[Rfam]
RNA sequence: AACUCUUCGCUCAAAGAAUCGCAUUCAAAGCUUACGCACAGGAGAGGGAAGAGAAUAGCCCUUCACGGAAUUAUUUUAUUCUCUCUUCAUACCGCAACUACUAGCUUUGGGAGAAAGUCCCCGGACACCCUGCACCCCCGUCUUAAAACCGCGAGGGUUCCUCACAACAAGCCAGGCACUGCGGAAACGCGCCGCCAUAGAAGCAUUUCUCAUUGCGGCUUACGCCUUUUUCCCUUCCCUUCUCUUUUCUCACUCUUCUUUUAGAAGGGAUGAGGAAAGAAAGAAGGGCUCGUCGCUGUUCCUACCCGACUCUGGAAGUUUUUAUUCUGCAGAGAAAACAAUGGUGGUUUGGACGGGAUGGGGCCAUUUUGGCGAGGGAUAGGUUGCCAUUCGUCGUGUUUCGAUAGUCAUGCGAUUGCUUGGUUUCGCAUGUGUAUAUUAUAUGUGUGAAAUCAAGUAACUCGAUGGGGCUUAUUCAUGAGGCGAGGAGU
Numbered sequence: 001a002a003c004u005c006u007u008c009g010c011u012c013a014a015a016g017a018a019u020c021g022c023a024u025u026c027a028a029a030g031c032u033u034a035c036g037c038a039c040a041g042g043a044g045a046g047g048g049a050a051g052a053g054a055a056u057a058g059c060c061c062u063u064c065a066c067g068g069a070a071u072u073a074u075u076u077u078a079u080u081c082u083c084u085c086u087u088c089a090u091a092c093c094g095c096a097a098c099u100a101c102u103a104g105c106u107u108u109g110g111g112a113g114a115a116a117g118u119c120c121c122c123g124g125a126c127a128c129c130c131u132g133c134a135c136c137c138c139c140g141u142c143u144u145a146a147a148a149c150c151g152c153g154a155g156g157g158u159u160c161c162u163c164a165c166a167a168c169a170a171g172c173c174a175g176g177c178a179c180u181g182c183g184g185a186a187a188c189g190c191g192c193c194g195c196c197a198u199a200g201a202a203g204c205a206u207u208u209c210u211c212a213u214u215g216c217g218g219c220u221u222a223c224g225c226c227u228u229u230u231u232c233c234c235u236u237c238c239c240u241u242c243u244c245u246u247u248u249c250u251c252a253c254u255c256u257u258c259u260u261u262u263a264g265a266a267g268g269g270a271u272g273a274g275g276a277a278a279g280a281a282a283g284a285a286g287g288g289c290u291c292g293u294c295g296c297u298g299u300u301c302c303u304a305c306c307c308g309a310c311u312c313u314g315g316a317a318g319u320u321u322u323u324a325u326u327c328u329g330c331a332g333a334g335a336a337a338a339c340a341a342u343g344g345u346g347g348u349u350u351g352g353a354c355g356g357g358a359u360g361g362g363g364c365c366a367u368u369u370u371g372g373c374g375a376g377g378g379a380u381a382g383g384u385u386g387c388c389a390u391u392c393g394u395c396g397u398g399u400u401u402c403g404a405u406a407g408u409c410a411u412g413c414g415a416u417u418g419c420u421u422g423g424u425u426u427c428g429c430a431u432g433u434g435u436a437u438a439u440u441a442u443a444u445g446u447g448u449g450a451a452a453u454c455a456a457g458u459a460a461c462u463c464g465a466u467g468g469g470g471c472u473u474a475u476u477c478a479u480g481a482g483g484c485g486a487g488g489a490g491u
Base pairs, nucleotide, nucleotide: 002491003490004489005488006487007486008485009484010483011482017417018416019415020414021413022412025111026109027108028107029106030105031104048088049087050086051085052084053083054082115473116472117471119470120469121468122467147159148158149157150156160176161175162174165171300379301378302377307374308373310371315368316367318365327363328362330360344354345353419457420456421455422454423453424452425451426450427449428448429447430446431445432444433443434442

Shown here is a 491-nucleotide RNA sequence from Histoplasma mississippiense, a member of the family "RNase MRP". Gene Ontology terms of the family: ribonuclease MRP complex, ribonuclease MRP activity and rRNA processing. A reference for the family is Schmitt et al. (1993), "Secondary structure of RNase MRP RNA as predicted by phylogenetic comparison", FASEB J. The family's RNA type in Rfam is ribozyme. Its Rfam clan is "RNaseP clan".